DUF805 RNA: a 67-nucleotide sequence from Tenacibaculum adriaticum. Rfam classes the family as a cis-regulatory element. NCBI's taxonomy places the organism under Bacteria, Pseudomonadati, Flavobacteriales, Flavobacteriaceae, Tenacibaculum. The family's consensus secondary structure is taken from published work.

RNA sequence: CAAAAGAGGUGCAGUAACCACUUAAAAAACGAGACGGAAUCCGAAAAGCCUUAUGAGUAGGAAAAAC
Dot-bracket structure: .....(.((........)).)...........[.[....((......].].........))......